[Rfam]
RNA sequence: UUUUAGAGAGUAGCGCAUGGGCCGGAUUCACAGGAGGGAGUCACGGUUGACGAGGGGGAGGCCGUUCGGAAUUGUCAGCGGGGAGCCUCCAGGGAUGAUCACGUUCCUGAGAAGAGAAUGUACAACGCCUGCCGGUAACGACCAGGACAAAACAUUUUCAGUGAUGUAG
Numbered sequence: 001u002u003u004u005a006g007a008g009a010g011u012a013g014c015g016c017a018u019g020g021g022c023c024g025g026a027u028u029c030a031c032a033g034g035a036g037g038g039a040g041u042c043a044c045g046g047u048u049g050a051c052g053a054g055g056g057g058g059a060g061g062c063c064g065u066u067c068g069g070a071a072u073u074g075u076c077a078g079c080g081g082g083g084a085g086c087c088u089c090c091a092g093g094g095a096u097g098a099u100c101a102c103g104u105u106c107c108u109g110a111g112a113a114g115a116g117a118a119u120g121u122a123c124a125a126c127g128c129c130u131g132c133c134g135g136u137a138a139c140g141a142c143c144a145g146g147a148c149a150a151a152a153c154a155u156u157u158u159c160a161g162u163g164a165u166g167u168a169g
Stems, first nucleotide, its partner, number of pairs: 020048005025042003029038001058089005067078001069076002090109006114159007128145001131142001133140002
Shown here is a 169-nucleotide sequence from Dictyobacter arantiisoli, a member of the family "glmS glucosamine-6-phosphate activated ribozyme aptamer".
A reference for the family is Winkler et al. (2004), "Control of gene expression by a natural metabolite-responsive ribozyme", Nature.
A search with the family's covariance model found it, with a score of 54 bits.
Taxonomically the source falls in Dictyobacter (Bacteria, Bacillati, Chloroflexota, Ktedonobacterales).